[Rfam]
Nucleotides: 053
Stems, first nucleotide, its partner, number of pairs: 002042004007025005
Number, partner (000 for none) and nucleotide at each position: 001000c002042c003041u004040u005039g006000a007025c008024a009023g010022u011021c012000a013000c014000a015000u016000c017000c018000c019000g020000u021011g022010a023009c024008u025007g026000a027000c028000u029000c030000u031000a032000g033000c034000c035000a036000c037000g038000a039005c040004a041003a042002g043000g044000a045000g046000a047000u048000a049000a050000c051000a052000u053000g